[Rfam]
RNA sequence: UGAUACUGGGCCUAAAUUUAGAAAAUGAAAAAAAACUUUUUUCUACUGUAGUUAAUAUA
Numbered sequence: 001u002g003a004u005a006c007u008g009g010g011c012c013u014a015a016a017u018u019u020a021g022a023a024a025a026u027g028a029a030a031a032a033a034a035a036c037u038u039u040u041u042u043c044u045a046c047u048g049u050a051g052u053u054a055a056u057a058u059a
Stems, first nucleotide, its partner, number of pairs: 019045007027036001
RNA: FIE3 (ftz instability element 3') element